[Rfam]
RNA sequence: GCCGAGCCUUGUAACGUGGGCUUGUGACUCAAGUGGGGGCAACAAUGUGGUGGAAUGUUGGGUAGUUCUUGAUGGCUGAGCUUUGAUGGGCUAUAAUCUCUGGCCUGCCCUAUCCAAGCGCGGAGUUGAGCCGUGUGGUCUACACGAAGGCAUAGGCUGCCUGGCUCUUAGAGUGGGAUGGACUGCGUGAGGCUGGUUUCACAGAGCAACGAGUAGUCCCCGGUCUGUGCAGUGGAAGGAUAACAGGUUGGUGCUCUUCGAGUUCAAUAAAAACCGGAUAAGCUGCCUAAUUAAACCACCACUUUU
Numbered sequence: 001g002c003c004g005a006g007c008c009u010u011g012u013a014a015c016g017u018g019g020g021c022u023u024g025u026g027a028c029u030c031a032a033g034u035g036g037g038g039g040c041a042a043c044a045a046u047g048u049g050g051u052g053g054a055a056u057g058u059u060g061g062g063u064a065g066u067u068c069u070u071g072a073u074g075g076c077u078g079a080g081c082u083u084u085g086a087u088g089g090g091c092u093a094u095a096a097u098c099u100c101u102g103g104c105c106u107g108c109c110c111u112a113u114c115c116a117a118g119c120g121c122g123g124a125g126u127u128g129a130g131c132c133g134u135g136u137g138g139u140c141u142a143c144a145c146g147a148a149g150g151c152a153u154a155g156g157c158u159g160c161c162u163g164g165c166u167c168u169u170a171g172a173g174u175g176g177g178a179u180g181g182a183c184u185g186c187g188u189g190a191g192g193c194u195g196g197u198u199u200c201a202c203a204g205a206g207c208a209a210c211g212a213g214u215a216g217u218c219c220c221c222g223g224u225c226u227g228u229g230c231a232g233u234g235g236a237a238g239g240a241u242a243a244c245a246g247g248u249u250g251g252u253g254c255u256c257u258u259c260g261a262g263u264u265c266a267a268u269a270a271a272a273a274c275c276g277g278a279u280a281a282g283c284u285g286c287c288u289a290a291u292u293a294a295a296c297c298a299c300c301a302c303u304u305u306u
Stems, first nucleotide, its partner, number of pairs: 001040003004023006028037003044305002047302007056293002058290009069280001073276003077272001078265006085258002088256003092253002100251008109239002113236004118230007126222001128167006135160008145150001168173001175220005184213001186211003193204003
RNA: Plant signal recognition particle RNA